[Rfam]
Rfam assigns this 174-nucleotide sequence from Zoogloea oleivorans to the family "Manganese Mn2+ riboswitch aptamer (yybP-ykoY)".
RNA sequence: GCGGCCGUCAUUGGGGAGUAGCCGCCCUUCUUUCGAAGGGGCCUGCGUCAACAUACUUGGUCUUUGGACCAUGGCGCAGGCAGUCCCGUACCUGGCAAGACCUUUGACCACCUCGCCUCCGGAUUUGGCCGGAGAGGCGUCGUGGUCAUUCGUCCUUGUCCGGCCAAGGGAAUC
Numbered sequence: 001g002c003g004g005c006c007g008u009c010a011u012u013g014g015g016g017a018g019u020a021g022c023c024g025c026c027c028u029u030c031u032u033u034c035g036a037a038g039g040g041g042c043c044u045g046c047g048u049c050a051a052c053a054u055a056c057u058u059g060g061u062c063u064u065u066g067g068a069c070c071a072u073g074g075c076g077c078a079g080g081c082a083g084u085c086c087c088g089u090a091c092c093u094g095g096c097a098a099g100a101c102c103u104u105u106g107a108c109c110a111c112c113u114c115g116c117c118u119c120c121g122g123a124u125u126u127g128g129c130c131g132g133a134g135a136g137g138c139g140u141c142g143u144g145g146u147c148a149u150u151c152g153u154c155c156u157u158g159u160c161c162g163g164c165c166a167a168g169g170g171a172a173u174c
Stems, first nucleotide, its partner, number of pairs: 026039003041081010058071005082173001084171004
Annotation
The match comes from Rfam's covariance-model search (103 bits).